[Rfam]
RNA sequence: CCACACGGCUCGCCGCAACACUCGCGGGCUCGUGGACCGGGGACCCACCGCAGCACUGGGGUGAAGCUCUGCACGGCCCGUUCGCGGGCCUCGCGGAGCCGGGCGACUUCCCGCCCGAACCCGUCAGCUAACUCGGUAGGCGGCAGGUGGAAGAAAG
Numbered sequence: 001c002c003a004c005a006c007g008g009c010u011c012g013c014c015g016c017a018a019c020a021c022u023c024g025c026g027g028g029c030u031c032g033u034g035g036a037c038c039g040g041g042g043a044c045c046c047a048c049c050g051c052a053g054c055a056c057u058g059g060g061g062u063g064a065a066g067c068u069c070u071g072c073a074c075g076g077c078c079c080g081u082u083c084g085c086g087g088g089c090c091u092c093g094c095g096g097a098g099c100c101g102g103g104c105g106a107c108u109u110c111c112c113g114c115c116c117g118a119a120c121c122c123g124u125c126a127g128c129u130a131a132c133u134c135g136g137u138a139g140g141c142g143g144c145a146g147g148u149g150g151a152a153g154a155a156a157g
Stems, first nucleotide, its partner, number of pairs: 011142004019034002036137006046058002059122003067098006101116004
RNA: c-di-AMP riboswitch aptamer (ydaO/yuaA leader)